Shown here is a 58-nucleotide sequence from Methylorubrum populi, a member of the family "terC RNA".
Taxonomically the source falls in Methylorubrum populi (Bacteria, Pseudomonadati, Alphaproteobacteria, Hyphomicrobiales).
The base pairs follow the family's consensus structure, which is taken from published work.
RNA sequence: AGACGGGUCCGGGCCCCUCUGACGGUCGAGGCGUCGACCGUGAUGUCGGACUCCCAUC
Numbered sequence: 001a002g003a004c005g006g007g008u009c010c011g012g013g014c015c016c017c018u019c020u021g022a023c024g025g026u027c028g029a030g031g032c033g034u035c036g037a038c039c040g041u042g043a044u045g046u047c048g049g050a051c052u053c054c055c056a057u058c
Base pairs, nucleotide, nucleotide: 006052007051008050009049010048011047012046022041023040024039025038026037027036028035029034